This 124-nucleotide RNA sequence from Gossypium hirsutum belongs to the Rfam family "MIR7504 microRNA precursor family". Lineage of the source: Eukaryota > Spermatophyta > Gunneridae > Pentapetalae > Gossypium. It scores 102 bits against the family's covariance model.

[Rfam]
RNA sequence: AACAAAAGAAUGACAAAUCAGAUUUUUUCUCCUAAUUUUUAGCCUUUUCUUCUUGAAAAAAAUUCAAAUCCAACUAAAAAUGCUAAAAUUUAGGUGGAAAAAUCUGAUUUGUCGUUCUUCUAAU
Numbered sequence: 001a002a003c004a005a006a007a008g009a010a011u012g013a014c015a016a017a018u019c020a021g022a023u024u025u026u027u028u029c030u031c032c033u034a035a036u037u038u039u040u041a042g043c044c045u046u047u048u049c050u051u052c053u054u055g056a057a058a059a060a061a062a063u064u065c066a067a068a069u070c071c072a073a074c075u076a077a078a079a080a081u082g083c084u085a086a087a088a089u090u091u092a093g094g095u096g097g098a099a100a101a102a103u104c105u106g107a108u109u110u111g112u113c114g115u116u117c118u119u120c121u122a123a124u
Stems, first nucleotide, its partner, number of pairs: 001124001004121001006119022029096001031094005037088003041084002045080004